[Rfam]
RNA sequence: UUCUUAUCGAGAGAAGCUGAGGGACUGGCCCUAUGAAGCUUCAGCAACCAGCCUUUGAUGUGGUCAGGUGCUAAAUCCAGCAGGCAUCUAAAUGUCUGAUAGAUGAAGA
Numbered sequence: 001u002u003c004u005u006a007u008c009g010a011g012a013g014a015a016g017c018u019g020a021g022g023g024a025c026u027g028g029c030c031c032u033a034u035g036a037a038g039c040u041u042c043a044g045c046a047a048c049c050a051g052c053c054u055u056u057g058a059u060g061u062g063g064u065c066a067g068g069u070g071c072u073a074a075a076u077c078c079a080g081c082a083g084g085c086a087u088c089u090a091a092a093u094g095u096c097u098g099a100u101a102g103a104u105g106a107a108g109a
Stems, first nucleotide, its partner, number of pairs: 001109002004106005013042005021031003025080004043072004048068002050064001052062001076101001081098006